[Rfam]
RNA sequence: UCUUCAUUCCGCGUACUCUCUCGUUGGUUAGAGUGUCGAGAGAGCACACGAAAUGAAGAGA
Dot-bracket structure: (((((((..(..((.((.((((...............)))).)).))..)..)))))))..
Numbered sequence: 001u002c003u004u005c006a007u008u009c010c011g012c013g014u015a016c017u018c019u020c021u022c023g024u025u026g027g028u029u030a031g032a033g034u035g036u037c038g039a040g041a042g043a044g045c046a047c048a049c050g051a052a053a054u055g056a057a058g059a060g061a
Stems, first nucleotide, its partner, number of pairs: 001059007010050001013047002016044002019041004